[Rfam]
Phenylalanine leader peptide: a 127-nucleotide RNA from Pantoea sp. Eser. Taxonomically the source falls in Pantoea (Bacteria, Pseudomonadati, Gammaproteobacteria, Erwiniaceae). Rfam classes the family as a cis-regulatory leader.
RNA sequence: CAAGCAUGACUGCUGCUAUUUUCCGUUUCUUUUUUUACUUUAGCGCCUGACAUUCGGGGGCUUUUGCGCAGUAAGAAGAGAAACGAAAAAUCGCGCUGAAAGCCUCCCUCGUGGAGGCUUUUUUGUU
Number, nucleotide and partner (000 for none) at each position: 001c000002a000003a000004g000005c000006a000007u000008g000009a000010c000011u000012g000013c000014u000015g094016c093017u000018a091019u000020u089021u088022u087023c000024c085025g084026u083027u082028u081029c080030u079031u078032u077033u076034u000035u074036u073037a072038c071039u000040u000041u000042a000043g000044c000045g000046c000047c056048u000049g000050a000051c000052a000053u000054u000055c000056g047057g067058g000059g065060g064061c000062u000063u000064u060065u059066g000067c057068g000069c000070a000071g038072u037073a036074a035075g000076a033077a032078g031079a030080g029081a028082a027083a026084c025085g024086a000087a022088a021089a020090a000091u018092c000093g016094c015095g000096c000097u000098g000099a121100a120101a119102g118103c117104c116105u115106c114107c113108c000109u000110c000111g000112u000113g107114g106115a105116g104117g103118c102119u101120u100121u099122u000123u000124u000125g000126u000127u000